[Rfam]
RNA sequence: UGUCUCGAACGAAGCUGGUUUUCCCAGUGAUCUCCAGAUAUCUGACAUCUGAGAUCAUUGUGAAAGCUGAUUUUGUGAG
Numbered sequence: 001u002g003u004c005u006c007g008a009a010c011g012a013a014g015c016u017g018g019u020u021u022u023c024c025c026a027g028u029g030a031u032c033u034c035c036a037g038a039u040a041u042c043u044g045a046c047a048u049c050u051g052a053g054a055u056c057a058u059u060g061u062g063a064a065a066g067c068u069g070a071u072u073u074u075g076u077g078a079g
Stems, first nucleotide, its partner, number of pairs: 009076006016069008025060001028057006
Shown here is a 79-nucleotide RNA sequence from Amphibalanus amphitrite, a member of the family "bantam microRNA precursor family". Its family is annotated with miRNA-mediated post-transcriptional gene silencing and RISC complex in the Gene Ontology. The literature on the family includes a 2007 paper in Genome Biol by Weaver et al., "Computational and transcriptional evidence for microRNAs in the honey bee genome". A search with the family's covariance model found it, with a score of 63 bits. The family has 28 seed sequences and 182 matches in Rfam 15.1.